Shown here is a 166-nucleotide RNA sequence from Endozoicomonas numazuensis, a member of the family "Molybdenum/Tungsten riboswitch aptamer (Moco RNA motif)". The match comes from Rfam's covariance-model search (82 bits). Its family is annotated with molybdenum ion binding, tungstate binding and regulation of gene expression in the Gene Ontology.
RNA sequence: UUUUGAAUUGAGCGCCGAGCUUCGCAGCCUAAACCUGAGUCAGGUAAUAACCCUGAAGGUAUGGUUGCCAGGCCGUAACCUGAUGCGUGUUGUGCGCAGGUUGCCAGGGUUCAUACAGAAAUGUCUGGGCCUCCCGUAUUUGGAAAGGUGUGAGAUGCGACCAUUA
Numbered sequence: 001u002u003u004u005g006a007a008u009u010g011a012g013c014g015c016c017g018a019g020c021u022u023c024g025c026a027g028c029c030u031a032a033a034c035c036u037g038a039g040u041c042a043g044g045u046a047a048u049a050a051c052c053c054u055g056a057a058g059g060u061a062u063g064g065u066u067g068c069c070a071g072g073c074c075g076u077a078a079c080c081u082g083a084u085g086c087g088u089g090u091u092g093u094g095c096g097c098a099g100g101u102u103g104c105c106a107g108g109g110u111u112c113a114u115a116c117a118g119a120a121a122u123g124u125c126u127g128g129g130c131c132u133c134c135c136g137u138a139u140u141u142g143g144a145a146a147g148g149u150g151u152g153a154g155a156u157g158c159g160a161c162c163a164u165u166a
Stems, first nucleotide, its partner, number of pairs: 003160002012151005019073004024068006033060004075104008107132007115124003133143002